[Rfam]
RNA sequence: UGACCUCGGAUCAGGUAGGGAUACCCGCUGAACUUAAGCAUAUCAAUAAGCGGAGGAAAAGAAACCAACAGGGAUUACCUCAGUAACGGCGAGUGAAGCGGUAACAGCUCAAAUUUGAAAUCUGGCUCUUUCAGGGUCCGAGUUGUAAUUUGUAGAAGAUGCUUUGGGUGUGGCACCGGUCUAAGUUCCUUGGAACAGGACGUCAUAGAGGGUGAGAAUCCCGUAUGUGACUGGUUGCUUUCGCCCGUGUAAAGCUCUUUCGACGAGUCGAGUUGUUUGGGAAUGCAGCUCAAAAUGGGUGGUAAAUUUCAUCUAAAGCUAAAUAUUGGCCAGAGACCGAUAGCGCACAAGUAGAGUGAUCGAAAGAUGAAAAGCACUUUGGAAAGAGAGUUAAACAGUACGUGAAAUUGUUGAAAGGGAAG
Dot-bracket structure: .......................((((((.....((....))......))))).).........((....))...((((......((.....)).....))))..((((..((((..((.((.((((.......)))).)).))..))))....(((((..((((.((((.((.(((((((...(.((((......)))))..(...)..((.......)).......)))))))..))..)))).....)))).))).))........(((((((........))))))).....(((((........)))))..)))).................................((....))...............((((....))))..................................
The record is a 422-nucleotide part of an RNA from Lachnellula suecica, which matches "Eukaryotic large subunit ribosomal RNA" in Rfam. The source organism's lineage runs through Eukaryota, Fungi, saccharomyceta, Pezizomycotina and Lachnellula. The match comes from Rfam's covariance-model search (3195 bits).